Shown here is a 71-nucleotide RNA sequence from Poecilia reticulata, a member of the family "Small nucleolar RNA SNORD99".
A search with the family's covariance model found it, with a score of 68 bits.
The family's consensus secondary structure was predicted with RNAalifold.
Rfam links the family to the GO terms nucleolus and RNA processing.

[Rfam]
RNA sequence: UCUGGUCGAUGAUGACUCUGAAGUGAGCAGACUGUUGGAUGAAGCUUGCGGAUAUGGGACUGAGAUCAGAC
Numbered sequence: 001u002c003u004g005g006u007c008g009a010u011g012a013u014g015a016c017u018c019u020g021a022a023g024u025g026a027g028c029a030g031a032c033u034g035u036u037g038g039a040u041g042a043a044g045c046u047u048g049c050g051g052a053u054a055u056g057g058g059a060c061u062g063a064g065a066u067c068a069g070a071c
Stems, first nucleotide, its partner, number of pairs: 001070005